[Rfam]
RNA sequence: GGUCAUGAGCGACAGCGACCAGGCCCCGGCCCGCUGUCCGGCAACCCUCCGUCCGUGGCGGGGUGCCCCGGGUGAAGACCUGGCCGCAGGCAGAGGGGUCUGCGGCAAGCGCGGACC
Numbered sequence: 001g002g003u004c005a006u007g008a009g010c011g012a013c014a015g016c017g018a019c020c021a022g023g024c025c026c027c028g029g030c031c032c033g034c035u036g037u038c039c040g041g042c043a044a045c046c047c048u049c050c051g052u053c054c055g056u057g058g059c060g061g062g063g064u065g066c067c068c069c070g071g072g073u074g075a076a077g078a079c080c081u082g083g084c085c086g087c088a089g090g091c092a093g094a095g096g097g098g099u100c101u102g103c104g105g106c107a108a109g110c111g112c113g114g115a116c117c
Base pairs, nucleotide, nucleotide: 001080002079003078004077009039011038012037013036014035015034016033022031023030040067041066042065045063046062047061049058050057083106084105085104086103087102088101089100090099091098
RNA: SAM (S-adenosyl methionine) riboswitch aptamer
Organism: Streptomyces jeddahensis